[Rfam]
RNA: Small nucleolar RNA snoR77
RNA sequence: AGGCAGCCCCUUUGUCACAAUUGCAAUGGCAAUGGAGGUGUUGCGUUGCUCGGAGAGAAAUUUCUUCUGCUCUUCAGAUUGGCUGAGGGGGAAGGCUUGCCUUCCUUCGCUGAAGCCUGUCUAGUAGUCUUAAGAACAUC
Numbered sequence: 001a002g003g004c005a006g007c008c009c010c011u012u013u014g015u016c017a018c019a020a021u022u023g024c025a026a027u028g029g030c031a032a033u034g035g036a037g038g039u040g041u042u043g044c045g046u047u048g049c050u051c052g053g054a055g056a057g058a059a060a061u062u063u064c065u066u067c068u069g070c071u072c073u074u075c076a077g078a079u080u081g082g083c084u085g086a087g088g089g090g091g092a093a094g095g096c097u098u099g100c101c102u103u104c105c106u107u108c109g110c111u112g113a114a115g116c117c118u119g120u121c122u123a124g125u126a127g128u129c130u131u132a133a134g135a136a137c138a139u140c
Base pairs, nucleotide, nucleotide: 002042003041004040005039007038008037009035010034012032013031014030015029016028017027064134065133066132069129071127076122077121078120079119082116083115084114087108088107089106090105091104092103093102094101